[Rfam]
The family of this 101-nucleotide RNA sequence from Kingdonia uniflora is "Small nucleolar RNA snoR99". On this family, see Marker et al., Curr Biol 2002: "Experimental RNomics: identification of 140 candidates for small non-messenger RNAs in the plant Arabidopsis thaliana". It scores 70 bits against the family's covariance model. Pairs were carried over by alignment from the consensus structure, which was predicted with WAR. By type it is an H/ACA-box small nucleolar RNA.
RNA sequence: GUACUUCUGGGAUGAAUUGGUCCCUAAUACAAAUUUUCUUCCACCUAUCACUUUGUCUGCAAUUUUAAUUAUUUUGUUGAUCAUUUCAAGGUGGAACAUCU
Numbered sequence: 001g002u003a004c005u006u007c008u009g010g011g012a013u014g015a016a017u018u019g020g021u022c023c024c025u026a027a028u029a030c031a032a033a034u035u036u037u038c039u040u041c042c043a044c045c046u047a048u049c050a051c052u053u054u055g056u057c058u059g060c061a062a063u064u065u066u067a068a069u070u071a072u073u074u075u076g077u078u079g080a081u082c083a084u085u086u087c088a089a090g091g092u093g094g095a096a097c098a099u100c101u
Base pairs, nucleotide, nucleotide: 040095041094042093043092044091045090055081056080057079059077060076061075062074